[Rfam]
7SK RNA: a 326-nucleotide RNA sequence from Equus caballus. Its Rfam clan is "7SK clan". 7SK was discovered as an abundant small nuclear RNA in the mid-70s but a possible function has only recently been suggested. Two independent studies have found that 7SK RNA binds the CDK9/cyclin T complex (known as elongation factor P-TEFb). P-TEFb activates transcription by phosphorylating the C-terminal domain of RNA polymerase II. This process is negatively regulated by the 7SK RNP. The secondary structure of 7SK RNA shown here was proposed by Wasserman and Steitz on the basis of chemical modification and enzymatic cleavage experiments. This family contains a number of annotated pseudogenes and 7SK derived repeats. The threshold is artificially high to minimise the pseudogene count. The base pairs follow the family's consensus structure, which is taken from published work.

RNA sequence: GGAUGUGAGGGUGAUCUGGCUACGACAUGUCACCCCAUUGAUCGCCAGGGUCGAUUUGGCUGAUCUGGCUGGCUAGGCGGGUCUCCCCUUCCUCCCUCACUGCUCCACGUGCAACCCUCCUGAAGCUGUGCUCUGUCAAGAGGACACCCUUCCCUGAUAGAGGAGGAUCAUUCUUUGGUCAAGGGUAUAUGAGUAGCCGUGCUACCCUUCCAGGACCUCCAAAUAAGCUCUCAAGGUCCAUUUGUAGGAGAACAUAGGGUAGUCAAGCGUCCAAGACUCCAGACACAUCCAAAUGAGGCGCUGCAUGUGGCAGUCUGCCUCUCUUA
Numbered sequence: 001g002g003a004u005g006u007g008a009g010g011g012u013g014a015u016c017u018g019g020c021u022a023c024g025a026c027a028u029g030u031c032a033c034c035c036c037a038u039u040g041a042u043c044g045c046c047a048g049g050g051u052c053g054a055u056u057u058g059g060c061u062g063a064u065c066u067g068g069c070u071g072g073c074u075a076g077g078c079g080g081g082u083c084u085c086c087c088c089u090u091c092c093u094c095c096c097u098c099a100c101u102g103c104u105c106c107a108c109g110u111g112c113a114a115c116c117c118u119c120c121u122g123a124a125g126c127u128g129u130g131c132u133c134u135g136u137c138a139a140g141a142g143g144a145c146a147c148c149c150u151u152c153c154c155u156g157a158u159a160g161a162g163g164a165g166g167a168u169c170a171u172u173c174u175u176u177g178g179u180c181a182a183g184g185g186u187a188u189a190u191g192a193g194u195a196g197c198c199g200u201g202c203u204a205c206c207c208u209u210c211c212a213g214g215a216c217c218u219c220c221a222a223a224u225a226a227g228c229u230c231u232c233a234a235g236g237u238c239c240a241u242u243u244g245u246a247g248g249a250g251a252a253c254a255u256a257g258g259g260u261a262g263u264c265a266a267g268c269g270u271c272c273a274a275g276a277c278u279c280c281a282g283a284c285a286c287a288u289c290c291a292a293a294u295g296a297g298g299c300g301c302u303g304c305a306u307g308u309g310g311c312a313g314u315c316u317g318c319c320u321c322u323c324u325u326a
Stems, first nucleotide, its partner, number of pairs: 001106003005100007013091002018088002024085001025082002028079004033072002035068003040065004044060003115165001116163004120135001122133002125131002136157003142153003196268002202262002205259004217250004223245005292325002295321005300314005